[Rfam]
Nucleotides: 089
Stems, first nucleotide, its partner, number of pairs: 001089003005085008
Number, partner (000 for none) and nucleotide at each position: 001089u002088u003087g004000c005085c006084u007083g008082u009081u010080g011079u012078c013000a014000a015000u016000g017000a018000u019000g020000g021000a022000u023000u024000c025000u026000u027000g028000u029000u030000g031000a032000a033000g034000c035000u036000g037000a038000a039000u040000g041000u042000g043000u044000a045000u046000g047000a048000u049000a050000u051000g052000a053000g054000u055000c056000a057000a058000c059000a060000u061000u062000u063000c064000g065000u066000c067000a068000c069000u070000a071000c072000c073000a074000c075000u076000g077000a078012g079011a080010c081009a082008a083007c084006a085005g086000a087003u088002a089001a